The family of this 349-nucleotide RNA sequence from [Clostridium] aminophilum is "Bacterial RNase P class A". It scores 284 bits against the family's covariance model. Pairs were carried over by alignment from the consensus structure, which is taken from published work. The source organism's lineage runs through Bacteria, Bacillati, Lachnospirales, Lachnospiraceae and Lachnoclostridium.
[Rfam]
RNA sequence: UGAGCAGGACAGAUGGUCGCUGCCGUAAGUGCCGAAAGGCCGCGGGAGAGGAAAGUCCGGGCUUCGCAGGGCAGGAUGCCAGAUAACGUCUGGUGGAGGUGACUCCCAGGACAGUGCAACAGAAAUAAACCGCCAUGACUUCAUGGUAAGGGUGGAAAGGCAGUGUAAGAGACUACCGCCCGCGUGGUAACAGGCGGGGCACAUGUAAACCCCAUCCGGAGAAAGACCGAACAGAGAACAUAUGGCGGCCCGUCAGUUCUCGGGCAGGUCGAUUGAGCCUGGUGGCGACAUCAGGUCUAGAUAGAUGACCAUCCAACGACAUAACCCGGCUUACCGUUCGGCUCAGAAC
Numbered sequence: 001u002g003a004g005c006a007g008g009a010c011a012g013a014u015g016g017u018c019g020c021u022g023c024c025g026u027a028a029g030u031g032c033c034g035a036a037a038g039g040c041c042g043c044g045g046g047a048g049a050g051g052a053a054a055g056u057c058c059g060g061g062c063u064u065c066g067c068a069g070g071g072c073a074g075g076a077u078g079c080c081a082g083a084u085a086a087c088g089u090c091u092g093g094u095g096g097a098g099g100u101g102a103c104u105c106c107c108a109g110g111a112c113a114g115u116g117c118a119a120c121a122g123a124a125a126u127a128a129a130c131c132g133c134c135a136u137g138a139c140u141u142c143a144u145g146g147u148a149a150g151g152g153u154g155g156a157a158a159g160g161c162a163g164u165g166u167a168a169g170a171g172a173c174u175a176c177c178g179c180c181c182g183c184g185u186g187g188u189a190a191c192a193g194g195c196g197g198g199g200c201a202c203a204u205g206u207a208a209a210c211c212c213c214a215u216c217c218g219g220a221g222a223a224a225g226a227c228c229g230a231a232c233a234g235a236g237a238a239c240a241u242a243u244g245g246c247g248g249c250c251c252g253u254c255a256g257u258u259c260u261c262g263g264g265c266a267g268g269u270c271g272a273u274u275g276a277g278c279c280u281g282g283u284g285g286c287g288a289c290a291u292c293a294g295g296u297c298u299a300g301a302u303a304g305a306u307g308a309c310c311a312u313c314c315a316a317c318g319a320c321a322u323a324a325c326c327c328g329g330c331u332u333a334c335c336g337u338u339c340g341g342c343u344c345a346g347a348a349c
Stems, first nucleotide, its partner, number of pairs: 001345005007339004012313007020048002023045004053332003057329005062221004069251004074217005079093005094108001095106004109212002114210002116206003130151002132147006159177002162174003178200001179198005185192002225270004234261006243255004277296008